[Rfam]
RNA sequence: GCAAAACGUGGCUAGGGUUCCGGUCGGUCAUCCCGAUGCUGGUCCGAGAGCCGCAGCCGUGCGGGAGACAUCCGCACGGUACACGGCGGGAUAAAAGCCCGGGAGAG
Numbered sequence: 001g002c003a004a005a006a007c008g009u010g011g012c013u014a015g016g017g018u019u020c021c022g023g024u025c026g027g028u029c030a031u032c033c034c035g036a037u038g039c040u041g042g043u044c045c046g047a048g049a050g051c052c053g054c055a056g057c058c059g060u061g062c063g064g065g066a067g068a069c070a071u072c073c074g075c076a077c078g079g080u081a082c083a084c085g086g087c088g089g090g091a092u093a094a095a096a097g098c099c100c101g102g103g104a105g106a107g
Base pairs, nucleotide, nucleotide: 008054009053010052011051012050015045016044020042021041022039023037024036025035026034027033056080057079058078059077060076061075062074063073082102084105088100089099090098